[Rfam]
Shown here is a 200-nucleotide RNA sequence from Planoprotostelium fungivorum, a member of the family "U2 spliceosomal RNA". Rfam's curators write: U2 is a small nuclear RNA (snRNA) component of the spliceosome (involved in pre-mRNA splicing). Complementary binding between U2 snRNA (in an area lying towards the 5' end but 3' to hairpin I) and the branchpoint sequence (BPS) of the intron results the bulging out of an unpaired adenosine, on the BPS, which initiates a nucleophilic attack at the intronic 5' splice site, thus starting the first of two transesterification reactions that mediate splicing. NCBI's taxonomy places the organism under Eukaryota, Amoebozoa, Evosea, Cavosteliida, Planoprotostelium. Clan: U2 clan. On this family, see Zwieb, Nucleic Acids Res 1997: "The uRNA database". The match comes from Rfam's covariance-model search (101 bits).
RNA sequence: ACAUCUUCUCGGCUUUAUAAGCUUAGAUCAAGUGUAGUAUCUGUUCUAUAUCAGUUAGUCGCUGAUAUCUCUGGCAACGCCCAGAGUACCGACUAAGUGUAUUUUUCUAUCGGGCAGGAGGGCAUACACUGGAGCUUGCGAAGGUGCCUCUUGCAAGGAUGAGAUCAGCAUAGCACUGAGCUGAGUAUCGUCCACCGUUU
Numbered sequence: 001a002c003a004u005c006u007u008c009u010c011g012g013c014u015u016u017a018u019a020a021g022c023u024u025a026g027a028u029c030a031a032g033u034g035u036a037g038u039a040u041c042u043g044u045u046c047u048a049u050a051u052c053a054g055u056u057a058g059u060c061g062c063u064g065a066u067a068u069c070u071c072u073g074g075c076a077a078c079g080c081c082c083a084g085a086g087u088a089c090c091g092a093c094u095a096a097g098u099g100u101a102u103u104u105u106u107c108u109a110u111c112g113g114g115c116a117g118g119a120g121g122g123c124a125u126a127c128a129c130u131g132g133a134g135c136u137u138g139c140g141a142a143g144g145u146g147c148c149u150c151u152u153g154c155a156a157g158g159a160u161g162a163g164a165u166c167a168g169c170a171u172a173g174c175a176c177u178g179a180g181c182u183g184a185g186u187a188u189c190g191u192c193c194a195c196c197g198u199u200u
Base pairs, nucleotide, nucleotide: 007027008026009025011023012022013021014020049067050066051065052064053063054062069086070085071084072083073082074080075079114154115153116152117151118150119149120148121147134139157193158192159191160190161189162188165184166183167182168181169180